[Rfam]
RNA sequence: UGCAUGGUGACACCCUAUCUCCACCUCCACGUGGUGACCGCUGGGAGCCUUUUCGUAACGAAAAGCUGCAGACGGAGAAGG
Numbered sequence: 001u002g003c004a005u006g007g008u009g010a011c012a013c014c015c016u017a018u019c020u021c022c023a024c025c026u027c028c029a030c031g032u033g034g035u036g037a038c039c040g041c042u043g044g045g046a047g048c049c050u051u052u053u054c055g056u057a058a059c060g061a062a063a064a065g066c067u068g069c070a071g072a073c074g075g076a077g078a079a080g081g
Stems, first nucleotide, its partner, number of pairs: 014081003018077001020075002023035003047067001049065007

A member of the RNA family "drz-agam-1 ribozyme" from Hermetia illucens, 81 nucleotides long. The family has 7 seed sequences and 10,507 matches in Rfam 15.1. Gene Ontology term of the family: catalytic activity. Taxonomically the source falls in Hermetia (Eukaryota, Insecta, Eumetabola, Endopterygota). Pairs were carried over by alignment from the consensus structure, which is taken from published work.